[Rfam]
Plastid-rps12 3UTR RNA: a 93-nucleotide RNA sequence from Capsicum annuum. The literature on the family includes a 2023 paper in Plant Commun by Richter et al., "Retrograde signaling in plants: A critical review focusing on the GUN pathway and beyond". A search with the family's covariance model found it, with a score of 90 bits. About the family: Plastid rpl20 is a non-coding RNA (ncRNA) recognised in plastids. It was found in the three prime untranslated region (3UTR) of rps12 gene, its 3UTR location sugest a role in transcript maduration. Lineage of the source: Eukaryota > Streptophytina > Embryophyta > Solanoideae > Capsicum. The family's consensus secondary structure was predicted with LocARNA.

RNA sequence: GGUUUCCAUUGGUGUAAAUUCAAUCACCUGAAUUUAAGAUGAUAGGAAACCAUUGGUAACAAAUUAUUAUCCAUUAAGCGGAGGAAAUCUUAU
Numbered sequence: 001g002g003u004u005u006c007c008a009u010u011g012g013u014g015u016a017a018a019u020u021c022a023a024u025c026a027c028c029u030g031a032a033u034u035u036a037a038g039a040u041g042a043u044a045g046g047a048a049a050c051c052a053u054u055g056g057u058a059a060c061a062a063a064u065u066a067u068u069a070u071c072c073a074u075u076a077a078g079c080g081g082a083g084g085a086a087a088u089c090u091u092a093u
Base pairs, nucleotide, nucleotide: 009023010022011021012020050081051080052074053073055071056070057069058068059067